[Rfam]
RNA: permuted transfer-messenger RNA
RNA sequence: GGCGAUAAAUGGCCAUCGGAAUAAGCCACUCGGACCCGGGGGCGGUACCCGGCGCCUCCACCAUUAUGGGGGCGAAAUAGGAUCGACGGGGGUGUAAAGGGUGUGUUUUCGCUCGGUAUGGUACUACCGUUAUCAGACCAAUUUUUAUAGUUGCCAAUGACAACUAUGCUGAGGCCCGUCUCGCUGCGUAA
Numbered sequence: 001g002g003c004g005a006u007a008a009a010u011g012g013c014c015a016u017c018g019g020a021a022u023a024a025g026c027c028a029c030u031c032g033g034a035c036c037c038g039g040g041g042g043c044g045g046u047a048c049c050c051g052g053c054g055c056c057u058c059c060a061c062c063a064u065u066a067u068g069g070g071g072g073c074g075a076a077a078u079a080g081g082a083u084c085g086a087c088g089g090g091g092g093u094g095u096a097a098a099g100g101g102u103g104u105g106u107u108u109u110c111g112c113u114c115g116g117u118a119u120g121g122u123a124c125u126a127c128c129g130u131u132a133u134c135a136g137a138c139c140a141a142u143u144u145u146u147a148u149a150g151u152u153g154c155c156a157a158u159g160a161c162a163a164c165u166a167u168g169c170u171g172a173g174g175c176c177c178g179u180c181u182c183g184c185u186g187c188g189u190a191a
Stems, first nucleotide, its partner, number of pairs: 001113005014103004026092002030089003036052005053074007114129004